[Rfam]
Nucleotides: 076
Stems, first nucleotide, its partner, number of pairs: 002050007021037006
Number, partner (000 for none) and nucleotide at each position: 001000c002050g003049u004048u005047c006046c007045g008044a009000g010000g011000a012000g013000c014000g015000u016000u017000g018000c019000g020000a021037c022036g023035a024034a025033a026032a027000c028000a029000c030000a031000a032026u033025u034024u035023u036022c037021g038000c039000c040000a041000g042000g043000c044008u045007c046006g047005g048004g049003a050002c051000u052000u053000c054000u055000a056000c057000c058000g059000c060000a061000a062000c063000u064000g065000c066000g067000c068000u069000c070000a071000c072000g073000u074000u075000a076000c
Rfam assigns this 76-nucleotide sequence from Massilia sp. CF038 to the family "SAH (S-adenosyl-L-homocysteine) riboswitch aptamer". The organism belongs to Massilia, within Bacteria. A search with the family's covariance model found it, with a score of 65 bits.